A member of the RNA family "Small nucleolar RNA SNORA12" from Microtus ochrogaster, 145 nucleotides long. U108 belongs to the H/ACA family of snoRNAs. The sequence is predicted to guide the pseudouridylation of the U372 residue in the 28S rRNA subunit. However it has not been reported as a pseudouridylation site. For this family Rfam cites "A novel experimental approach for systematic identification of box H/ACA snoRNAs from eukaryotes" (Gu et al., Nucleic Acids Res, 2005). The organism belongs to Microtus, within Eukaryota. Its family is annotated with RNA processing and nucleolus in the Gene Ontology. Rfam 15.1 lists 571 matches to the family in 378 species. The base pairs follow the family's consensus structure, which was predicted with RNAalifold.
RNA sequence: UUUGGUGGUAGCGUCUUCCUGGCACAUCUGCUAAGUAUUCAGAUGGGCCUGACUCUGCCACGUACAUUAUGCAGGAGCCUGCAGAGUCUUAGGGACAAAGAGUCUCUCUUGAGAGUUUUCUGUUGACAGACUGGCUCCCAUAAGU
Numbered sequence: 001u002u003u004g005g006u007g008g009u010a011g012c013g014u015c016u017u018c019c020u021g022g023c024a025c026a027u028c029u030g031c032u033a034a035g036u037a038u039u040c041a042g043a044u045g046g047g048c049c050u051g052a053c054u055c056u057g058c059c060a061c062g063u064a065c066a067u068u069a070u071g072c073a074g075g076a077g078c079c080u081g082c083a084g085a086g087u088c089u090u091a092g093g094g095a096c097a098a099a100g101a102g103u104c105u106c107u108c109u110u111g112a113g114a115g116u117u118u119u120c121u122g123u124u125g126a127c128a129g130a131c132u133g134g135c136u137c138c139c140a141u142a143a144g145u
Stems, first nucleotide, its partner, number of pairs: 005061007021049003025045006074138006081088001105130003109126001
Dot-bracket structure: ....(((((((.........(((.((((((.........)))))).))).....)))))))............((((((.(......)................(((.(................).)))..)))))).......
About this RNA: The match comes from Rfam's covariance-model search (112 bits).